[Rfam]
RNA sequence: GUAGGGUAUGGCGACAUGUACCCACAGACCGUGGGCGGCAAGUUGGUGGGGUCGCUGUGUGCCAUAGCCGGCGUACUGACUAUCGCAUUGCCGGUACCUGUUAUCGUCUCCAAC
Numbered sequence: 001g002u003a004g005g006g007u008a009u010g011g012c013g014a015c016a017u018g019u020a021c022c023c024a025c026a027g028a029c030c031g032u033g034g035g036c037g038g039c040a041a042g043u044u045g046g047u048g049g050g051g052u053c054g055c056u057g058u059g060u061g062c063c064a065u066a067g068c069c070g071g072c073g074u075a076c077u078g079a080c081u082a083u084c085g086c087a088u089u090g091c092c093g094g095u096a097c098c099u100g101u102u103a104u105c106g107u108c109u110c111c112a113a114c
Stems, first nucleotide, its partner, number of pairs: 001114002004111002008107004013102004018097004037077002040074001049063002
A member of the RNA family "Potassium channel RNA editing signal" from Branchiostoma floridae, 114 nucleotides long. The source organism's lineage runs through Eukaryota, Eumetazoa, Bilateria, Cephalochordata and Branchiostoma. By type it is a cis-regulatory element. From the family's description: This family represents a group of sequences related to the human potassium channel Kv1.1 hairpin element which directs the efficient modification of an adenosine to inosine by an adenosine deaminase acting on RNA (ADAR). For this family Rfam cites "Control of human potassium channel inactivation by editing of a small mRNA hairpin" (Bhalla et al., Nat Struct Mol Biol, 2004).